This 122-nucleotide RNA from Desulfotomaculum nigrificans belongs to the Rfam family "Ribosomal protein L20 leader". A search with the family's covariance model found it, with a score of 69 bits. The base pairs follow the family's consensus structure, which was predicted with CMfinder. Rfam describes the family as follows. This family is a putative r-protein leader autoregulatory structure found in B. subtilis and other low-GC Gram-positive bacteria. It is located in the 5' untranslated regions of mRNAs encoding initiation factor 3 followed by ribosomal proteins L35 and L20 (infC-rpmI-rplT). A Rho-independent transcription terminator structure that is probably involved in regulation is included at the 3' end. By type it is a cis-regulatory leader.
RNA sequence: UUUAAUAAGUAGAAGCAUCCGCUUCUCACCUUACGCCUCAGGUUAGUAAGGUUACGAUGUACGACAUGUUAGUAACAGUGCGUCUAAAAAGCGGGUGGUUUCGCCCGCUUUUAUUUAUUUCA
Numbered sequence: 001u002u003u004a005a006u007a008a009g010u011a012g013a014a015g016c017a018u019c020c021g022c023u024u025c026u027c028a029c030c031u032u033a034c035g036c037c038u039c040a041g042g043u044u045a046g047u048a049a050g051g052u053u054a055c056g057a058u059g060u061a062c063g064a065c066a067u068g069u070u071a072g073u074a075a076c077a078g079u080g081c082g083u084c085u086a087a088a089a090a091g092c093g094g095g096u097g098g099u100u101u102c103g104c105c106c107g108c109u110u111u112u113a114u115u116u117a118u119u120u121c122a
Stems, first nucleotide, its partner, number of pairs: 011026006028052003033047002037042001090109008